[Rfam]
The family of this 100-nucleotide RNA from Nitrosomonas eutropha is "traJ-II RNA".
NCBI's taxonomy places the organism under Bacteria, Pseudomonadota, Betaproteobacteria, Nitrosomonas, Nitrosomonas eutropha.
RNA sequence: AGGCAAGAUGUGUAAUGUAGUCCUACAUGCUACGCAUUUUGGCUAACAUUACCUUCACUUAUUCGCCUUUGGCUCAACGUUAAUCUUGCUCUGCGAGGCC
Number, nucleotide and partner (000 for none) at each position: 001a000002g090003g089004c088005a087006a086007g085008a084009u083010g000011u000012g052013u051014a050015a049016u048017g047018u045019a044020g043021u000022c000023c041024u000025a039026c000027a037028u000029g035030c000031u000032a000033c000034g000035c029036a000037u027038u000039u025040u000041g023042g000043c020044u019045a018046a000047c017048a016049u015050u014051a013052c012053c000054u000055u082056c000057a080058c079059u000060u000061a000062u000063u000064c000065g073066c072067c071068u000069u000070u000071g067072g066073c065074u000075c000076a000077a000078c000079g058080u057081u000082a055083a009084u008085c007086u006087u005088g004089c003090u002091c000092u000093g000094c000095g000096a000097g000098g000099c000100c000
Rfam 15.1 lists 174 matches to the family in 172 species. The family's RNA type in Rfam is cis-regulatory element.